[Rfam]
The record is a 102-nucleotide RNA, which matches "c-di-GMP-II-GAG riboswitch aptamer" in Rfam. The sequence is in the family's curated seed alignment. The literature on the family includes a 2017 paper in Proc Natl Acad Sci U S A by Weinberg et al., "Bioinformatic analysis of riboswitch structures uncovers variant classes with altered ligand specificity".
RNA sequence: GGCCGCGGGACGCGAAGAUCCUCGGACCGGACGCCGGUCGCCGCCUGUGGUACCCACGGGGAGGUCCGAGGGGAGCGAGUGGCGAGACCGACCCGAACCGCC
Numbered sequence: 001g002g003c004c005g006c007g008g009g010a011c012g013c014g015a016a017g018a019u020c021c022u023c024g025g026a027c028c029g030g031a032c033g034c035c036g037g038u039c040g041c042c043g044c045c046u047g048u049g050g051u052a053c054c055c056a057c058g059g060g061g062a063g064g065u066c067c068g069a070g071g072g073g074a075g076c077g078a079g080u081g082g083c084g085a086g087a088c089c090g091a092c093c094c095g096a097a098c099c100g101c102c
Base pairs, nucleotide, nucleotide: 002099006095007094008093009092011077012076013075020071021070022069023068024067025066026065027064036089037088038085039084040083041082042081